[Rfam]
RNA: Small nucleolar RNA Z152/R70/R12/
RNA sequence: GGUGCGAUGAUGAUUCAUAAGGUUUUUGGCAGCAUCUGUCACCGUGAGCCUGCAAACCAGAAAAUGACUUCUCUUUCCACUGAGCAUU
Number, nucleotide and partner (000 for none) at each position: 001g088002g087003u086004g085005c084006g000007a000008u000009g000010a000011u000012g000013a000014u000015u000016c000017a000018u000019a000020a000021g000022g000023u000024u000025u000026u000027u000028g000029g000030c000031a000032g000033c000034a000035u000036c000037u000038g000039u000040c000041a000042c000043c000044g000045u000046g000047a000048g000049c000050c000051u000052g000053c000054a000055a000056a000057c000058c000059a000060g000061a000062a000063a000064a000065u000066g000067a000068c000069u000070u000071c000072u000073c000074u000075u000076u000077c000078c000079a000080c000081u000082g000083a000084g005085c004086a003087u002088u001